[Rfam]
RNA sequence: ACUGGACCCGGUGAAACUCCGGGUGGCUCUUCCGGCCGCCGACCCGCCGGACAACA
Numbered sequence: 001a002c003u004g005g006a007c008c009c010g011g012u013g014a015a016a017c018u019c020c021g022g023g024u025g026g027c028u029c030u031u032c033c034g035g036c037c038g039c040c041g042a043c044c045c046g047c048c049g050g051a052c053a054a055c056a
Stems, first nucleotide, its partner, number of pairs: 006024006031051006
This 56-nucleotide RNA sequence from Chelativorans sp. BNC1 belongs to the Rfam family "sul1 RNA".
Rfam's curators put it in the seed alignment.